[Rfam]
The record is a 129-nucleotide RNA from Chrysochloris asiatica, which matches "Small nucleolar RNA SNORA20" in Rfam.
The organism belongs to Chrysochloris, within Eukaryota.
RNA sequence: CUUUCCAGUUGUUUGUUGACAUUGUCUCUCAGUGUUAUGAGCAGCUAUACACAUGGGGUAAAAUACAUAGGGCUGUUGUAAAUUGAGAUGAUGUUAUCAUUUUGUCUCUUCUGCACGAACUAGACACUA
Numbered sequence: 001c002u003u004u005c006c007a008g009u010u011g012u013u014u015g016u017u018g019a020c021a022u023u024g025u026c027u028c029u030c031a032g033u034g035u036u037a038u039g040a041g042c043a044g045c046u047a048u049a050c051a052c053a054u055g056g057g058g059u060a061a062a063a064u065a066c067a068u069a070g071g072g073c074u075g076u077u078g079u080a081a082a083u084u085g086a087g088a089u090g091a092u093g094u095u096a097u098c099a100u101u102u103u104g105u106c107u108c109u110u111c112u113g114c115a116c117g118a119a120c121u122a123g124a125c126a127c128u129a
Stems, first nucleotide, its partner, number of pairs: 003058005015045004022037001026034001068123001070121002074117002077115004085108007093100002
By type it is an H/ACA-box small nucleolar RNA. Rfam describes the family as follows. ACA20 is a member of the H/ACA class of snoRNA that guide the sites of modification of uridines to pseudouridines. Its family is annotated with nucleolus and RNA processing in the Gene Ontology.